[Rfam]
RNA: Glycine riboswitch aptamer
Organism: Methylibium petroleiphilum
RNA sequence: UCGUUACCGUCAGGAGAGCGUUGCCGUCAGCACACCGACGGCAGCCGCCGAAGGCGCAGAGGACACACCUCGAACGCUCAGGCAAAAGGACUGGCAAACGCCU
Numbered sequence: 001u002c003g004u005u006a007c008c009g010u011c012a013g014g015a016g017a018g019c020g021u022u023g024c025c026g027u028c029a030g031c032a033c034a035c036c037g038a039c040g041g042c043a044g045c046c047g048c049c050g051a052a053g054g055c056g057c058a059g060a061g062g063a064c065a066c067a068c069c070u071c072g073a074a075c076g077c078u079c080a081g082g083c084a085a086a087a088g089g090a091c092u093g094g095c096a097a098a099c100g101c102c103u
Stems, first nucleotide, its partner, number of pairs: 009095005020045009047083003050079002054077003060070002